[Rfam]
RNA sequence: AUCUCCUUAGCUCUGCUCAGUUGCACUUGACCAAGUAUGGUGUGACUGUCGUACACAGGAGAGAAAACAAGAAUUCCCUUUGAUAACAGCUUGACCUACUGUGGUCUCUCUGUUCCUUAUGGGAUUUGACAAGU
Number, nucleotide and partner (000 for none) at each position: 001a000002u067003c000004u065005c000006c063007u062008u061009a000010g000011c000012u059013c058014u057015g056016c000017u000018c000019a047020g046021u045022u044023g043024c042025a041026c040027u000028u000029g000030a000031c000032c000033a000034a000035g000036u000037a000038u000039g000040g026041u025042g024043u023044g022045a021046c020047u019048g000049u000050c000051g000052u000053a000054c000055a000056c015057a014058g013059g012060a000061g008062a007063g006064a000065a004066a000067a002068c000069a000070a000071g000072a000073a000074u000075u124076c123077c122078c121079u000080u000081u000082g115083a000084u000085a000086a000087c000088a111089g110090c000091u000092u000093g106094a105095c104096c103097u000098a000099c000100u000101g000102u000103g096104g095105u094106c093107u000108c000109u000110c089111u088112g000113u000114u000115c082116c000117u000118u000119a000120u000121g078122g077123g076124a075125u000126u000127u000128g000129a000130c000131a000132a000133g000134u000
Shown here is a 134-nucleotide sequence from Sarcophilus harrisii, a member of the family "Small nucleolar RNA SNORA64/SNORA10 family". This family belongs to the H/ACA class of small nucleolar RNAs (snoRNAs) which act as guides in the the modification of uridines to pseudouridines. This family includes the human snoRNAs U64 and ACA10 and mouse MBI-29. The source organism's lineage runs through Eukaryota, Opisthokonta, Metazoa, Bilateria and Sarcophilus. The family's RNA type in Rfam is H/ACA-box small nucleolar RNA. The literature on the family includes a 1999 paper in EMBO J by Narayanan et al., "Nucleolar localization signals of box H/ACA small nucleolar RNAs". The family's consensus secondary structure is taken from published work.